[Rfam]
RNA: Plastid-psbA-1 3UTR RNA
Organism: Colobanthus quitensis
Nucleotides: 126
Base pairs, nucleotide, nucleotide: 007022008021009020010019011018072126073125074124075123076122077121079119081118083116084115085114087112088111089110091108092107093106094105095104
Number, partner (000 for none) and nucleotide at each position: 001000u002000g003000a004000a005000g006000u007022u008021c009020c010019a011018u012000c013000a014000a015000u016000a017000a018011a019010u020009g021008g022007a023000u024000a025000a026000a027000a028000a029000u030000u031000c032000u033000u034000u035000g036000u037000u038000a039000a040000u041000u042000u043000a044000g045000u046000a047000u048000a049000u050000a051000c052000g053000g054000g055000u056000u057000u058000u059000g060000a061000a062000a063000g064000u065000u066000g067000a068000a069000a070000g071000u072126a073125a074124a075123g076122g077121g078000a079119c080000a081118a082000u083116u084115a085114a086000a087112g088111a089110a090000u091108u092107u093106c094105u095104u096000g097000u098000u099000c100000u101000a102000u103000c104095a105094a106093g107092a108091a109000a110089u111088u112087c113000u114085u115084u116083a117000u118081u119079g120000c121077c122076c123075c124074u125073u126072u